The record is a 52-nucleotide RNA sequence from Solanum commersonii, which matches "MIR1886 microRNA precursor family" in Rfam. A search with the family's covariance model found it, with a score of 64 bits. Rfam 15.1 lists 1,053 matches to the family in 6 species. The family's consensus secondary structure was predicted with RNAalifold.

RNA sequence: UGAGAUGAAAUUAGUGAUUGGAUAUGCGAUUUCACGCUGAUUCCAUCUCAUG
Numbered sequence: 001u002g003a004g005a006u007g008a009a010a011u012u013a014g015u016g017a018u019u020g021g022a023u024a025u026g027c028g029a030u031u032u033c034a035c036g037c038u039g040a041u042u043c044c045a046u047c048u049c050a051u052g
Stems, first nucleotide, its partner, number of pairs: 001050007009042008018029003